[Rfam]
RNA sequence: AUGCAUCUGUUUGACAGACCCAGAGCAAACAGCCAUUGCUUCUUGUUCUUGCUGAGAUGCAACAGUAACAGGUUCCUUGUGCUUUCUGCCUGUCUGACCUGGUGGCAGUCUGGAUUGAAGAAAGGAACACAAAC
Numbered sequence: 001a002u003g004c005a006u007c008u009g010u011u012u013g014a015c016a017g018a019c020c021c022a023g024a025g026c027a028a029a030c031a032g033c034c035a036u037u038g039c040u041u042c043u044u045g046u047u048c049u050u051g052c053u054g055a056g057a058u059g060c061a062a063c064a065g066u067a068a069c070a071g072g073u074u075c076c077u078u079g080u081g082c083u084u085u086c087u088g089c090c091u092g093u094c095u096g097a098c099c100u101g102g103u104g105g106c107a108g109u110c111u112g113g114a115u116u117g118a119a120g121a122a123a124g125g126a127a128c129a130c131a132a133a134c
Stems, first nucleotide, its partner, number of pairs: 002061007012051002016049003020045001023041006074126005082117001085114004090108005
Dot-bracket structure: .(((((((...((..(((.(..((((((.......))))))...).)))))...)))))))............(((((...(..((((.(((((.........)))))..))))..)....)))))........
The family of this 134-nucleotide RNA from Nyctibius grandis is "Small nucleolar RNA SNORA31". Pairs were carried over by alignment from the consensus structure, which was predicted with RNAalifold. From the family's description: ACA31 (SNORA31) belongs to the H/ACA class of snoRNAs which are thought to guide the sites of modification of uridines to pseudouridines. ACA31 is predicted to guide the pseudouridylation of U3713 in 28S rRNA and U218 in 18S rRNA. This family includes the mouse homologue snoMBI-161. For this family Rfam cites "RNomics: an experimental approach that identifies 201 candidates for novel, small, non-messenger RNAs in mouse" (Huttenhofer et al., EMBO J, 2001). It is annotated as an H/ACA-box small nucleolar RNA.